This 84-nucleotide sequence from Stutzerimonas stutzeri belongs to the Rfam family "ivy-DE RNA". The base pairs follow the family's consensus structure, which is taken from published work. It is one of the family's seed sequences. Taxonomically the source falls in Stutzerimonas stutzeri (Bacteria, Pseudomonadati, Pseudomonadota, Gammaproteobacteria). The family's RNA type in Rfam is cis-regulatory element.
[Rfam]
RNA sequence: GAGCCAGGGGGCCGGGACGCUCUGUUCAUGGAGCGACCUAGGGGUACAGGGAGUGCCUCCGUGAUGGGCCAGGUUCGGUAAUGA
Numbered sequence: 001g002a003g004c005c006a007g008g009g010g011g012c013c014g015g016g017a018c019g020c021u022c023u024g025u026u027c028a029u030g031g032a033g034c035g036a037c038c039u040a041g042g043g044g045u046a047c048a049g050g051g052a053g054u055g056c057c058u059c060c061g062u063g064a065u066g067g068g069c070c071a072g073g074u075u076c077g078g079u080a081a082u083g084a
Base pairs, nucleotide, nucleotide: 001076002075003074004073005072010070011069012068013067014039015038016037018035020033021032022031023030024029041059042058043057044056045055046054047053